A member of the RNA family "mir-9/mir-79 microRNA precursor family" from Electrophorus electricus, 76 nucleotides long. Taxonomically the source falls in Electrophorus (Eukaryota, Metazoa, Craniata, Neopterygii). On this family, see Lagos-Quintana et al., Science 2001: "Identification of novel genes coding for small expressed RNAs". Gene Ontology terms of the family: RISC complex and miRNA-mediated post-transcriptional gene silencing.
RNA sequence: CGGUUCUUACUUUCGGUUAUCUAGCUUUAUGACGAACAGCACACUCAUACAGCUAGAUAACCAAAGAUAAUAACAC
Numbered sequence: 001c002g003g004u005u006c007u008u009a010c011u012u013u014c015g016g017u018u019a020u021c022u023a024g025c026u027u028u029a030u031g032a033c034g035a036a037c038a039g040c041a042c043a044c045u046c047a048u049a050c051a052g053c054u055a056g057a058u059a060a061c062c063a064a065a066g067a068u069a070a071u072a073a074c075a076c
Stems, first nucleotide, its partner, number of pairs: 003074003007070003011066003015062012028049005